[Rfam]
RNA sequence: GGGGUGUAAUCAGAGCAGGACGCCGGAGACUAGCUCCCCUGUUUACAGCACGUCCAACAGCAACUCGGGUGUGCUCCUCAGGGGGGCUGGGCACCGUGACCUUCCUGUGACAGUGCGCCCUACAUGU
Numbered sequence: 001g002g003g004g005u006g007u008a009a010u011c012a013g014a015g016c017a018g019g020a021c022g023c024c025g026g027a028g029a030c031u032a033g034c035u036c037c038c039c040u041g042u043u044u045a046c047a048g049c050a051c052g053u054c055c056a057a058c059a060g061c062a063a064c065u066c067g068g069g070u071g072u073g074c075u076c077c078u079c080a081g082g083g084g085g086g087c088u089g090g091g092c093a094c095c096g097u098g099a100c101c102u103u104c105c106u107g108u109g110a111c112a113g114u115g116c117g118c119c120c121u122a123c124a125u126g127u
Stems, first nucleotide, its partner, number of pairs: 002055006013044007022034002067120004074113002079109002082102003088096003
This 127-nucleotide sequence from Phyllostomus discolor belongs to the Rfam family "Small nucleolar RNA SNORA11". From the family's description: U107 (SNORA11) is a member of the H/ACA class of snoRNAs that guide the sites of modification of uridines to pseudouridines. This snoRNA was identified by RT-PCR from blood cells and its expression confirmed by Northern blot analysis. There is no predicted target for this guide snRNA. It is annotated as an H/ACA-box small nucleolar RNA. Rfam links the family to the GO terms RNA processing and nucleolus. Taxonomically the source falls in Phyllostomus (Eukaryota, Euteleostomi, Sarcopterygii, Amniota). The base pairs follow the family's consensus structure, which was predicted with RNAalifold.